[Rfam]
RNA: MIR474 microRNA precursor family
Organism: Populus alba
RNA sequence: UCUAAAAGCUGCUAGGUCUGGCUGGGCAAUUAGACUCAAUGCUAGUGAGUCAUUCCAAAAGCUGAGGGGUCUGCUAGAUAACUAGACACAACACCUGUUAAAGCGAUUUGGGUCUGCCUGUCCAACCAGACUUAGCAGUUUUUGACA
Numbered sequence: 001u002c003u004a005a006a007a008g009c010u011g012c013u014a015g016g017u018c019u020g021g022c023u024g025g026g027c028a029a030u031u032a033g034a035c036u037c038a039a040u041g042c043u044a045g046u047g048a049g050u051c052a053u054u055c056c057a058a059a060a061g062c063u064g065a066g067g068g069g070u071c072u073g074c075u076a077g078a079u080a081a082c083u084a085g086a087c088a089c090a091a092c093a094c095c096u097g098u099u100a101a102a103g104c105g106a107u108u109u110g111g112g113u114c115u116g117c118c119u120g121u122c123c124a125a126c127c128a129g130a131c132u133u134a135g136c137a138g139u140u141u142u143u144g145a146c147a
Base pairs, nucleotide, nucleotide: 001145002144004142005141006140011136012135013134014133015132016131017130018129019128020127021126023124024123025122026121027120028119033051034050035049036048037047038046040044056116057115